This 74-nucleotide RNA sequence from Glareola pratincola belongs to the Rfam family "tRNA". The family's RNA type in Rfam is transfer RNA. NCBI's taxonomy places the organism under Eukaryota, Bilateria, Deuterostomia, Tetrapoda, Glareola. About the family: Transfer RNA (tRNA) molecules are approximately 80 nucleotides in length. A search with the family's covariance model found it, with a score of 47 bits.
RNA sequence: CUCUCUGCGGCACAACUGGUUAGUGCAUUUGGCUGAUAACUGAAAGGUUGGUGGUUCAAGCCCACCCAGGGACA
Numbered sequence: 001c002u003c004u005c006u007g008c009g010g011c012a013c014a015a016c017u018g019g020u021u022a023g024u025g026c027a028u029u030u031g032g033c034u035g036a037u038a039a040c041u042g043a044a045a046g047g048u049u050g051g052u053g054g055u056u057c058a059a060g061c062c063c064a065c066c067c068a069g070g071g072a073c074a
Base pairs, nucleotide, nucleotide: 002072003071004070005069006068007067010026011025012024013023028044029043030042031041032040050066051065052064053063054062